Record summary: Shown here is a 312-nucleotide RNA sequence from uncultured archaeon A07HR60, a member of the family "Archaeal signal recognition particle RNA". Its Rfam clan is "SRP clan".

RNA sequence: UGACGGACUAGGUUGGGCGGUUAGGCCCCGCUCUUCACCCGUAAGGAAGUCUUCAGCGGGGACCGAACACCGGGGGCGUACGGUCAGACCGACGCGGGCCCCGAGAGCCAACGUGGAAGCCUCGUCCGACGGGGACAGCGGUCCGCGGCGCUCAUCCGCAGGGAUGAUCCGUCACGGUUGGUCGGCGGCAGUGGGUCAGGCGCGGAAGCGAGCAUCCCACCGCUGGACGCCAGUCGCUCGUGGGGUCGCGGGGUGGAGAAGGCAACCGGGAAUACCCACGUCGGAACGCCGGGCCACCCCGGUCGUCUGCCA
Numbered sequence: 001u002g003a004c005g006g007a008c009u010a011g012g013u014u015g016g017g018c019g020g021u022u023a024g025g026c027c028c029c030g031c032u033c034u035u036c037a038c039c040c041g042u043a044a045g046g047a048a049g050u051c052u053u054c055a056g057c058g059g060g061g062a063c064c065g066a067a068c069a070c071c072g073g074g075g076g077c078g079u080a081c082g083g084u085c086a087g088a089c090c091g092a093c094g095c096g097g098g099c100c101c102c103g104a105g106a107g108c109c110a111a112c113g114u115g116g117a118a119g120c121c122u123c124g125u126c127c128g129a130c131g132g133g134g135a136c137a138g139c140g141g142u143c144c145g146c147g148g149c150g151c152u153c154a155u156c157c158g159c160a161g162g163g164a165u166g167a168u169c170c171g172u173c174a175c176g177g178u179u180g181g182u183c184g185g186c187g188g189c190a191g192u193g194g195g196u197c198a199g200g201c202g203c204g205g206a207a208g209c210g211a212g213c214a215u216c217c218c219a220c221c222g223c224u225g226g227a228c229g230c231c232a233g234u235c236g237c238u239c240g241u242g243g244g245g246u247c248g249c250g251g252g253g254u255g256g257a258g259a260a261g262g263c264a265a266c267c268g269g270g271a272a273u274a275c276c277c278a279c280g281u282c283g284g285a286a287c288g289c290c291g292g293g294c295c296a297c298c299c300c301g302g303u304c305g306u307c308u309g310c311c312a
Base pairs, nucleotide, nucleotide: 001312002311004309005308006307007306008305011064012063013062014061015033016032017031018030019029020028038060039059040058041057042056069303070302071301072300073299074298075297078294079293081291082289089284090283091282092281093280094279096277097276098275100270101269102268103267107263108262109261112258114256119254120253121252122251123250124249125248126244127243129241130240131239132238133237134235135234136233138231139229140228141179143177144176145175147173148172149171150170152167153166154165155164156163157162182226183225184224185223186222187221188220192219193218194217195216201210202209203208
About this RNA
It is annotated as a non-coding RNA gene. A reference for the family is Regalia et al. (2002), "Prediction of signal recognition particle RNA genes", Nucleic Acids Res. The base pairs follow the family's consensus structure, which is taken from published work.